Shown here is a 119-nucleotide RNA sequence from Aminivibrio pyruvatiphilus, a member of the family "Molybdenum/Tungsten riboswitch aptamer (Moco RNA motif)". The base pairs follow the family's consensus structure, which is taken from published work. A reference for the family is Regulski et al. (2008), "in molybdenum cofactor and tungsten cofactor metabolism", Mol Microbiol. It scores 72 bits against the family's covariance model. The organism belongs to Aminivibrio, within Bacteria.
[Rfam]
RNA sequence: UGCGGACAGUCCCUCCGAGCCAUGAAACCUACAGGCGGCAGCCCAUGGAUUCAUGGCCGACAGGGUGCUCCCGGAAACGGAAGCGCCUCCCGCACGGCAAGGAGGGAAGGACGCUCGGC
Numbered sequence: 001u002g003c004g005g006a007c008a009g010u011c012c013c014u015c016c017g018a019g020c021c022a023u024g025a026a027a028c029c030u031a032c033a034g035g036c037g038g039c040a041g042c043c044c045a046u047g048g049a050u051u052c053a054u055g056g057c058c059g060a061c062a063g064g065g066u067g068c069u070c071c072c073g074g075a076a077a078c079g080g081a082a083g084c085g086c087c088u089c090c091c092g093c094a095c096g097g098c099a100a101g102g103a104g105g106g107a108a109g110g111a112c113g114c115u116c117g118g119c
Stems, first nucleotide, its partner, number of pairs: 003113002011106006019057008028048002034043003063088007071080003089097002